Shown here is a 348-nucleotide RNA from Gelria sp. Kuro-4, a member of the family "Bacterial RNase P class A". On this family, see Brown, Nucleic Acids Res 1999: "The Ribonuclease P Database". The family's RNA type in Rfam is ribozyme. The base pairs follow the family's consensus structure, which is taken from published work. From the family's description: Ribonuclease P (RNase P) is a ubiquitous endoribonuclease, found in archaea, bacteria and eukarya as well as chloroplasts and mitochondria. Gene Ontology terms of the family: ribonuclease P activity, tRNA processing and dimeric ribonuclease P complex. It scores 299 bits against the family's covariance model. The organism belongs to Gelria, within Bacteria.
RNA sequence: UGAGCAGGCCGGAUGGCCGCGGGCGCAGCGCCGCAAGGCCGCGCCUGAGGAAAGUCCGGGCUCCGCAGGGCAGGGUGCUGGCUAACGGCCAGUGGGGGCGACCCUAAGGAAAGUGCCACAGAAAUGAAGACCGCCGCGCCGGCGGCAAGGAUGCAACGGUGAGGUAAGAGCUCACCAGCGGCCAGGCGACUGGCCGGCUAGGUAAACCCCACCCGGAGCAAGACCUAGUAGGGGAAGGAUGAGGUCGCCCGCCGACUUCCCGGGAAGGUCGCACGAGGCGUCAGGCAACUGGCGUCCUAGAUAGAUGGUCAUCUUCAACAGAACCCGGCUUACAGGCCUGCUCAUGCG
Number, nucleotide and partner (000 for none) at each position: 001u344002g343003a342004g341005c340006a339007g338008g337009c336010c335011g333012g313013a312014u311015g310016g309017c308018c307019g000020c047021g046022g045023g044024c043025g042026c041027a000028g039029c000030g000031c000032c000033g000034c000035a000036a000037g000038g000039c028040c000041g026042c025043g024044c023045c022046u021047g020048a000049g000050g000051a000052a331053a330054g329055u000056c328057c327058g326059g325060g324061c218062u217063c216064c215065g000066c000067a000068g250069g249070g248071c247072a000073g214074g213075g212076u211077g210078c092079u091080g090081g089082c088083u000084a000085a000086c000087g000088g082089c081090c080091a079092g078093u107094g105095g104096g103097g102098g000099c000100g000101a000102c097103c096104c095105u094106a000107a093108g209109g208110a000111a000112a000113g207114u206115g203116c202117c201118a000119c000120a000121g000122a000123a000124a000125u000126g000127a000128a000129g000130a000131c150132c149133g146134c145135c144136g143137c142138g000139c000140c000141g000142g137143c136144g135145g134146c133147a000148a000149g132150g131151a000152u000153g000154c000155a000156a000157c000158g176159g175160u174161g173162a172163g171164g000165u000166a000167a000168g000169a000170g000171c163172u162173c161174a160175c159176c158177a000178g198179c196180g195181g194182c193183c192184a191185g190186g000187c000188g000189a000190c185191u184192g183193g182194c181195c180196g179197g000198c178199u000200a000201g117202g116203u115204a000205a000206a114207c113208c109209c108210c077211a076212c075213c074214c073215g064216g063217a062218g061219c000220a000221a000222g270223a269224c268225c267226u000227a000228g000229u000230a000231g000232g261233g260234g259235a258236a257237g256238g000239a000240u000241g000242a000243g253244g252245u251246c000247g071248c070249c069250c068251g245252c244253c243254g000255a000256c237257u236258u235259c234260c233261c232262g000263g000264g000265a000266a000267g225268g224269u223270c222271g000272c000273a000274c000275g000276a000277g296278g295279c294280g293281u292282c291283a290284g289285g000286c000287a000288a000289c284290u283291g282292g281293c280294g279295u278296c277297c000298u000299a000300g000301a000302u000303a000304g000305a000306u000307g018308g017309u016310c015311a014312u013313c012314u000315u000316c000317a000318a000319c000320a000321g000322a000323a000324c060325c059326c058327g057328g056329c054330u053331u052332a000333c011334a000335g010336g009337c008338c007339u006340g005341c004342u003343c002344a001345u000346g000347c000348g000